A member of the RNA family "Bacterial RNase P class A" from Halovulum marinum, 375 nucleotides long.
From the family's description: Ribonuclease P (RNase P) is a ubiquitous endoribonuclease, found in archaea, bacteria and eukarya as well as chloroplasts and mitochondria. Its best characterised activity is the generation of mature 5'-ends of tRNAs by cleaving the 5'-leader elements of precursor-tRNAs. Cellular RNase Ps are ribonucleoproteins.
The base pairs follow the family's consensus structure, which is taken from published work.
The source organism's lineage runs through Bacteria, Pseudomonadati, Pseudomonadota, Paracoccaceae and Halovulum.
The match comes from Rfam's covariance-model search (276 bits).
The family's RNA type in Rfam is ribozyme.
RNA sequence: GCGGAUGGCCGGAUGGCCGCGGGCUUCGUGCCCGAGGAAAGUCCGGACUCCACGGAGGAACGGCGCCGGGUAACGCCCGGCCGGCGCAAGCCGAGGGACAGCGCCACAGAGAACAGUCCGCCCCGGCCUGUCCGGGGCAAGGGUGAAACGGUGGGGUAAGAGCCCACCGCGGGCCUGGCAACAGGUCCGGCACGGCAAGCCCCGCCGGGAGCAAGGCCAAAUAGGGAUCGCGUGCGGCGCAAGCCGCAGGGGCGCCUCCGCCCCGAGCAGGUCCGGGUUGGCUGCCCGAGCCGGUCCGCAAGGGCCGGCCCAGACGAAUGGCCAUCGGGACGCGCAAGCGUCUUACAGAAUCCGGCUUACAGGCCAUCCGCAUCC
Numbered sequence: 001g002c003g004g005a006u007g008g009c010c011g012g013a014u015g016g017c018c019g020c021g022g023g024c025u026u027c028g029u030g031c032c033c034g035a036g037g038a039a040a041g042u043c044c045g046g047a048c049u050c051c052a053c054g055g056a057g058g059a060a061c062g063g064c065g066c067c068g069g070g071u072a073a074c075g076c077c078c079g080g081c082c083g084g085c086g087c088a089a090g091c092c093g094a095g096g097g098a099c100a101g102c103g104c105c106a107c108a109g110a111g112a113a114c115a116g117u118c119c120g121c122c123c124c125g126g127c128c129u130g131u132c133c134g135g136g137g138c139a140a141g142g143g144u145g146a147a148a149c150g151g152u153g154g155g156g157u158a159a160g161a162g163c164c165c166a167c168c169g170c171g172g173g174c175c176u177g178g179c180a181a182c183a184g185g186u187c188c189g190g191c192a193c194g195g196c197a198a199g200c201c202c203c204g205c206c207g208g209g210a211g212c213a214a215g216g217c218c219a220a221a222u223a224g225g226g227a228u229c230g231c232g233u234g235c236g237g238c239g240c241a242a243g244c245c246g247c248a249g250g251g252g253c254g255c256c257u258c259c260g261c262c263c264c265g266a267g268c269a270g271g272u273c274c275g276g277g278u279u280g281g282c283u284g285c286c287c288g289a290g291c292c293g294g295u296c297c298g299c300a301a302g303g304g305c306c307g308g309c310c311c312a313g314a315c316g317a318a319u320g321g322c323c324a325u326c327g328g329g330a331c332g333c334g335c336a337a338g339c340g341u342c343u344u345a346c347a348g349a350a351u352c353c354g355g356c357u358u359a360c361a362g363g364c365c366a367u368c369c370g371c372a373u374c375c
Stems, first nucleotide, its partner, number of pairs: 001371010011360001012326007020034005039358003043355005048211004057257002061207005066080005081095001082093004096202002101200002103196003118142002120138007150168006169191001170189008215283004225274005249264005290309008